[Rfam]
RNA: Bacterial RNase P class B
RNA sequence: AAUUUCGAGUAAUCGCGGUCUAGUUUUCUAGGCUGAGGAAGGUCCACGCCAGCACGAGCUGAGAUGCUUGUAGUGUUCGUGCUUAGCCUAAUAAGCUAAGGUGCCUUUUGGUAAUGGCAGCGAAAGCACUAAGGUUUUUACUAUGUGUCAUUAGCUUGAAAGUGCCACAGAGACGUAGUAUCAGGGGAAACCCUGAUAAUGGAACGAGGUAAACCCCACGAGCUGGCAACCCAAACUUUGGUAGGGGCGCUUCAUAACGAGAAAUGAAUCUACUGUGAAGGCUUAAUUGUAGAUAGAUGAUUACUGAUUGUACUGGCUUACCAAACCAGUACUUGAACAGAACGUGGCCUAUAGAA
Numbered sequence: 001a002a003u004u005u006c007g008a009g010u011a012a013u014c015g016c017g018g019u020c021u022a023g024u025u026u027u028c029u030a031g032g033c034u035g036a037g038g039a040a041g042g043u044c045c046a047c048g049c050c051a052g053c054a055c056g057a058g059c060u061g062a063g064a065u066g067c068u069u070g071u072a073g074u075g076u077u078c079g080u081g082c083u084u085a086g087c088c089u090a091a092u093a094a095g096c097u098a099a100g101g102u103g104c105c106u107u108u109u110g111g112u113a114a115u116g117g118c119a120g121c122g123a124a125a126g127c128a129c130u131a132a133g134g135u136u137u138u139u140a141c142u143a144u145g146u147g148u149c150a151u152u153a154g155c156u157u158g159a160a161a162g163u164g165c166c167a168c169a170g171a172g173a174c175g176u177a178g179u180a181u182c183a184g185g186g187g188a189a190a191c192c193c194u195g196a197u198a199a200u201g202g203a204a205c206g207a208g209g210u211a212a213a214c215c216c217c218a219c220g221a222g223c224u225g226g227c228a229a230c231c232c233a234a235a236c237u238u239u240g241g242u243a244g245g246g247g248c249g250c251u252u253c254a255u256a257a258c259g260a261g262a263a264a265u266g267a268a269u270c271u272a273c274u275g276u277g278a279a280g281g282c283u284u285a286a287u288u289g290u291a292g293a294u295a296g297a298u299g300a301u302u303a304c305u306g307a308u309u310g311u312a313c314u315g316g317c318u319u320a321c322c323a324a325a326c327c328a329g330u331a332c333u334u335g336a337a338c339a340g341a342a343c344g345u346g347g348c349c350u351a352u353a354g355a356a
Stems, first nucleotide, its partner, number of pairs: 004356003007352001008305007016035006040350003044347005049226005054071006077221005082100006101115001102113004116216002119156003126148004133142003162214002164210003179198008230246003250280007281290002310332006